This 79-nucleotide RNA sequence from Cercopithifilaria johnstoni belongs to the Rfam family "SmY spliceosomal RNA".
Rfam 15.1 lists 408 matches to the family in 67 species.
The family's RNA type in Rfam is spliceosomal small nuclear RNA.
On this family, see Jia et al., BMC Mol Biol 2007: "Systematic identification of non-coding RNA 2,2,7-trimethylguanosine cap structures in Caenorhabditis elegans".
RNA sequence: AGUACGUCUAAUCUUUAUCCAGGGCCUUAUCCAAGACCCGGGGAACAAUUUUUGGCUGCUUCCCCAGGAGGGGAGGCAA
Numbered sequence: 001a002g003u004a005c006g007u008c009u010a011a012u013c014u015u016u017a018u019c020c021a022g023g024g025c026c027u028u029a030u031c032c033a034a035g036a037c038c039c040g041g042g043g044a045a046c047a048a049u050u051u052u053u054g055g056c057u058g059c060u061u062c063c064c065c066a067g068g069a070g071g072g073g074a075g076g077c078a079a
Base pairs, nucleotide, nucleotide: 022039023038024037026035027034028033057078058077059076060075061074062073063072064071065070